Source information: The family of this 155-nucleotide RNA from Cocos nucifera is "small nucleolar RNA snoR135". A search with the family's covariance model found it, with a score of 95 bits. Pairs were carried over by alignment from the consensus structure, which was predicted with RNAalifold. Gene Ontology terms of the family: RNA processing and nucleolus. Lineage of the source: Eukaryota > Viridiplantae > Arecaceae > Arecoideae > Cocos.
[Rfam]
RNA sequence: AUUGCAGGAUAGUGUGUAUCGGCGUUAUGCCCUCCUAAGAUGAAGAUGGAUUUCUUGCCGAAAGUGUUUCCUGCUACAGUAAAUUUCGGGGAAAAUGGGCAGUUGACUUAAACCCUAAUUCUAUUGGUUUCUCAACAAUCAUUUUCCCCAUAUUU
Dot-bracket structure: ...((((((....((.(((..........................))).))................).))))).............(((((((((((...((((...........................))))..)))))))))))......
Numbered sequence: 001a002u003u004g005c006a007g008g009a010u011a012g013u014g015u016g017u018a019u020c021g022g023c024g025u026u027a028u029g030c031c032c033u034c035c036u037a038a039g040a041u042g043a044a045g046a047u048g049g050a051u052u053u054c055u056u057g058c059c060g061a062a063a064g065u066g067u068u069u070c071c072u073g074c075u076a077c078a079g080u081a082a083a084u085u086u087c088g089g090g091g092a093a094a095a096u097g098g099g100c101a102g103u104u105g106a107c108u109u110a111a112a113c114c115c116u117a118a119u120u121c122u123a124u125u126g127g128u129u130u131c132u133c134a135a136c137a138a139u140c141a142u143u144u145u146c147c148c149c150a151u152a153u154u155u
Stems, first nucleotide, its partner, number of pairs: 004074005009068001014051002017048003088149011102136004